The record is a 147-nucleotide sequence from Sporobacter termitidis, which matches "Molybdenum/Tungsten riboswitch aptamer (Moco RNA motif)" in Rfam.
Lineage of the source: Bacteria > Bacillota > Clostridia > Sporobacter > Sporobacter termitidis.
[Rfam]
RNA sequence: AUCCAAUAUUGGCUCCGAGCUGCAACACCUGUCACAAAGUUCAUGGCGGUGCAGCCUGGGCGGCGGCGUUUUUGCCGCGCGCCCGCACGGUUUUGCUGGAAACGGCAGGGCCUUCUGUUUUGAAAAGGAGCAAUACAUAGGCGGCGC
Numbered sequence: 001a002u003c004c005a006a007u008a009u010u011g012g013c014u015c016c017g018a019g020c021u022g023c024a025a026c027a028c029c030u031g032u033c034a035c036a037a038a039g040u041u042c043a044u045g046g047c048g049g050u051g052c053a054g055c056c057u058g059g060g061c062g063g064c065g066g067c068g069u070u071u072u073u074g075c076c077g078c079g080c081g082c083c084c085g086c087a088c089g090g091u092u093u094u095g096c097u098g099g100a101a102a103c104g105g106c107a108g109g110g111c112c113u114u115c116u117g118u119u120u121u122g123a124a125a126a127g128g129a130g131c132a133a134u135a136c137a138u139a140g141g142c143g144g145c146g147c
Stems, first nucleotide, its partner, number of pairs: 003141002006138001012131005019055006026048001028046002034041001057085005089112010114123002
Dot-bracket structure: ..((.(.....(((((..((((((.(.((....(......)...)).).)))))).(((((...................)))))...((((((((((....)))))))))).((......))...)))))......).))......